Shown here is a 492-nucleotide part of an RNA from Colletotrichum gloeosporioides, a member of the family "Eukaryotic large subunit ribosomal RNA". The source organism's lineage runs through Eukaryota, Fungi, Dikarya, saccharomyceta and Colletotrichum gloeosporioides species complex.
[Rfam]
RNA sequence: UCUGCUGAAGUUUCCCUUAGGAUAGUAGUGUUAAACUUAGUUUUAUAAGGUAAAGCGAAUAAUUAAAGACUUAGGAGCGCUAUAUUGCUUUUAUUUAUUCUUAAACUUUAAAUAUAUAAGAAGCCUUUAUUACUUAAUUAAAUGUAGGUAUUUAAAUAUAUUAACACUAGUAGGCUAUUUUUAGUAAGUAGAACUAGUGAUAUAAGAUAAACUAAAUAUGAGGUUAAGGUGCUAAAGUAGAUACUUAUUAAAUACUAUAAAAGGUGUUAGUAUAUCUUAACAAUAAGAUAGUAGCUAUAGAAGUUAGAAUCUGCUAAGAACUAUAUAAUAACUUACCUGCUGAAUAUACUAGCCCUAAAAAUAGAUAGCACUUAAGCGUCUCACCUAUACCUCACCCUCAGUAUAGAAAUAAUAUGCUGAGGAGUAGGUAGAUAUAGAGGUUAUGAUGAAGCCUAAAGUGUAAGCCUAAGUAGAACAGCCUCUAGUAUAGAU
Numbered sequence: 001u002c003u004g005c006u007g008a009a010g011u012u013u014c015c016c017u018u019a020g021g022a023u024a025g026u027a028g029u030g031u032u033a034a035a036c037u038u039a040g041u042u043u044u045a046u047a048a049g050g051u052a053a054a055g056c057g058a059a060u061a062a063u064u065a066a067a068g069a070c071u072u073a074g075g076a077g078c079g080c081u082a083u084a085u086u087g088c089u090u091u092u093a094u095u096u097a098u099u100c101u102u103a104a105a106c107u108u109u110a111a112a113u114a115u116a117u118a119a120g121a122a123g124c125c126u127u128u129a130u131u132a133c134u135u136a137a138u139u140a141a142a143u144g145u146a147g148g149u150a151u152u153u154a155a156a157u158a159u160a161u162u163a164a165c166a167c168u169a170g171u172a173g174g175c176u177a178u179u180u181u182u183a184g185u186a187a188g189u190a191g192a193a194c195u196a197g198u199g200a201u202a203u204a205a206g207a208u209a210a211a212c213u214a215a216a217u218a219u220g221a222g223g224u225u226a227a228g229g230u231g232c233u234a235a236a237g238u239a240g241a242u243a244c245u246u247a248u249u250a251a252a253u254a255c256u257a258u259a260a261a262a263g264g265u266g267u268u269a270g271u272a273u274a275u276c277u278u279a280a281c282a283a284u285a286a287g288a289u290a291g292u293a294g295c296u297a298u299a300g301a302a303g304u305u306a307g308a309a310u311c312u313g314c315u316a317a318g319a320a321c322u323a324u325a326u327a328a329u330a331a332c333u334u335a336c337c338u339g340c341u342g343a344a345u346a347u348a349c350u351a352g353c354c355c356u357a358a359a360a361a362u363a364g365a366u367a368g369c370a371c372u373u374a375a376g377c378g379u380c381u382c383a384c385c386u387a388u389a390c391c392u393c394a395c396c397c398u399c400a401g402u403a404u405a406g407a408a409a410u411a412a413u414a415u416g417c418u419g420a421g422g423a424g425u426a427g428g429u430a431g432a433u434a435u436a437g438a439g440g441u442u443a444u445g446a447u448g449a450a451g452c453c454u455a456a457a458g459u460g461u462a463a464g465c466c467u468a469a470g471u472a473g474a475a476c477a478g479c480c481u482c483u484a485g486u487a488u489a490g491a492u
Stems, first nucleotide, its partner, number of pairs: 001432006011024001013022003027168007041121007053109001054107002060103003065098001067096003072093006079086001123149004128144004174198004179193005203214002219394004224389001228385003237382001239381001242378001244376001262356003266353010284339002287336001289313003295307002314318001319334001324331001396422009433487001435484008444475001451471002458465002